[Rfam]
RNA sequence: AAAUAGGUUUCACUCCGAGCCGGGUUCACCUAAAGGCAAAACUAUGGUGACCGGCCAGGGCCAAUAGCCCUCAGGGUAUGUCUGGAAACGGAUGUGCCUUCACGUUUUGAAAAGGAGAUGGUAAAGCCGAU
Numbered sequence: 001a002a003a004u005a006g007g008u009u010u011c012a013c014u015c016c017g018a019g020c021c022g023g024g025u026u027c028a029c030c031u032a033a034a035g036g037c038a039a040a041a042c043u044a045u046g047g048u049g050a051c052c053g054g055c056c057a058g059g060g061c062c063a064a065u066a067g068c069c070c071u072c073a074g075g076g077u078a079u080g081u082c083u084g085g086a087a088a089c090g091g092a093u094g095u096g097c098c099u100u101c102a103c104g105u106u107u108u109g110a111a112a113a114g115g116a117g118a119u120g121g122u123a124a125a126g127c128c129g130a131u
Stems, first nucleotide, its partner, number of pairs: 011120002013117004019055005025049001028048003034043002057071005074099011100110002
RNA: Molybdenum/Tungsten riboswitch aptamer (Moco RNA motif)
Organism: Peptococcaceae bacterium CEB3